[Rfam]
RNA sequence: GUCUUCGAGGAGCGUUGCGACGGAUGUCACCCAUCCGCCAGGCUCGAAGGCGCUCAAUACGGCCAGUUCGCGGUUUUCAUGCCACGAACGCACCGCACUGAAAAACGGCGCUCACGUCUU
Numbered sequence: 001g002u003c004u005u006c007g008a009g010g011a012g013c014g015u016u017g018c019g020a021c022g023g024a025u026g027u028c029a030c031c032c033a034u035c036c037g038c039c040a041g042g043c044u045c046g047a048a049g050g051c052g053c054u055c056a057a058u059a060c061g062g063c064c065a066g067u068u069c070g071c072g073g074u075u076u077u078c079a080u081g082c083c084a085c086g087a088a089c090g091c092a093c094c095g096c097a098c099u100g101a102a103a104a105a106c107g108g109c110g111c112u113c114a115c116g117u118c119u120u
Stems, first nucleotide, its partner, number of pairs: 002050007021037006

SAH (S-adenosyl-L-homocysteine) riboswitch aptamer: a 120-nucleotide RNA sequence from Paraburkholderia tropica. Rfam links the family to the GO terms regulation of gene expression and S-adenosylhomocysteine metabolic process. The family's consensus secondary structure is taken from published work.